Small Cajal body specific RNA 1: a 165-nucleotide RNA from Pterocles burchelli. On this family, see Darzacq et al., EMBO J 2002: "Cajal body-specific small nuclear RNAs: a novel class of 2'-O-methylation and pseudouridylation guide RNAs". Rfam classes the family as a small Cajal body RNA. Rfam's curators write: scaRNAs are a specific class of small nuclear RNAs which localise to the Cajal bodies and guide the modification of RNA polymerase II transcribed spliceosomal RNAs U1, U2, U4, U5 and U12. ACA35 belong to the H/ACA box class of guide RNAs as it has the predicted hairpin-hinge-hairpin-tail structure, conserved H/ACA-box motifs and is found associated with GAR1. It is predicted to guide pseudouridylation of the U2 spliceosomal snRNA at residue U89.
RNA sequence: GAGCACUUGAUACUAACCGAGCCGUCCGUAUCGCAGGUCUCAUGCAGAGGCCUGAGGUACACCUUGGACUGCUGGGUCUGAAAAGUGCAACAAUAAAACAAGCCAUGAAGUGUUUAAGCUCUGUGUAUAAAGGAUAACACUGGGUUAUAACUCAGAGGCACAGAA
Numbered sequence: 001g002a003g004c005a006c007u008u009g010a011u012a013c014u015a016a017c018c019g020a021g022c023c024g025u026c027c028g029u030a031u032c033g034c035a036g037g038u039c040u041c042a043u044g045c046a047g048a049g050g051c052c053u054g055a056g057g058u059a060c061a062c063c064u065u066g067g068a069c070u071g072c073u074g075g076g077u078c079u080g081a082a083a084a085g086u087g088c089a090a091c092a093a094u095a096a097a098a099c100a101a102g103c104c105a106u107g108a109a110g111u112g113u114u115u116a117a118g119c120u121c122u123g124u125g126u127a128u129a130a131a132g133g134a135u136a137a138c139a140c141u142g143g144g145u146u147a148u149a150a151c152u153c154a155g156a157g158g159c160a161c162a163g164a165a
Base pairs, nucleotide, nucleotide: 003088004087005086006085007084008083016077017076018075020073021072022071024069025068026067028060029059030058031057032056034054036052037051038050039049040048041047102159103158104157123138124137128133140155141154142153143152144151145150